The record is a 103-nucleotide RNA sequence from Kangiella koreensis, which matches "t44 RNA" in Rfam.
The source organism's lineage runs through Bacteria, Kangiellales, Kangiellaceae, Kangiella and Kangiella koreensis.
Rfam classes the family as a small RNA.
A reference for the family is Tjaden et al. (2002), "Transcriptome analysis of Escherichia coli using high-density oligonucleotide probe arrays", Nucleic Acids Res.
Rfam's curators put it in the seed alignment.
Rfam's curators write: This family consists of a number of bacterial RNA genes of between 135 and 170 bases in length.

[Rfam]
RNA sequence: AGUCAUAAACCUAAACUACACACGCAAAUCGACACAUUUGCCGGGGUGCUCAGUCGGAUUAAAGCUGGCUUGGGUCGGGAAAUGGGAUUUGCGGAGGCUUAAC
Numbered sequence: 001a002g003u004c005a006u007a008a009a010c011c012u013a014a015a016c017u018a019c020a021c022a023c024g025c026a027a028a029u030c031g032a033c034a035c036a037u038u039u040g041c042c043g044g045g046g047u048g049c050u051c052a053g054u055c056g057g058a059u060u061a062a063a064g065c066u067g068g069c070u071u072g073g074g075u076c077g078g079g080a081a082a083u084g085g086g087a088u089u090u091g092c093g094g095a096g097g098c099u100u101a102a103c
Base pairs, nucleotide, nucleotide: 023093024092025091026090027089028088029087030086035084036083037082038081039080041078042077043076048075049074050073051072052071